[Rfam]
Nucleotides: 095
Base pairs, nucleotide, nucleotide: 002091004089005088006087008083009082010081011080012079013076016074017073018072019071020070022067023066024065025064027062028061032059033058034057035056036055041050042049043048
Number, partner (000 for none) and nucleotide at each position: 001000g002091g003000g004089a005088a006087g007000c008083c009082u010081u011080u012079g013076u014000g015000a016074g017073a018072g019071a020070g021000g022067c023066c024065u025064g026000c027062u028061u029000a030000a031000c032059u033058c034057c035056g036055u037000c038000a039000g040000g041050g042049u043048c044000g045000g046000a047000a048043g049042a050041c051000a052000g053000c054000a055036g056035c057034g058033g059032g060000c061028g062027g063000c064025u065024a066023g067022g068000u069000u070020u071019u072018c073017u074016c075000g076013g077000c078000g079012u080011a081010a082009a083008g084000a085000a086000u087006c088005u089004u090000g091002u092000c093000u094000g095000a
The family of this 95-nucleotide sequence from a Spirochaetota bacterium is "Bacterial small signal recognition particle RNA". Rfam links the family to the GO terms signal recognition particle, plasma membrane targeting and SRP-dependent cotranslational protein targeting to membrane, signal sequence recognition. The base pairs follow the family's consensus structure, which is taken from published work. Rfam's curators write: The signal recognition particle (SRP) is a universally conserved ribonucleoprotein involved in the co-translational targeting of proteins to membranes. A search with the family's covariance model found it, with a score of 50 bits.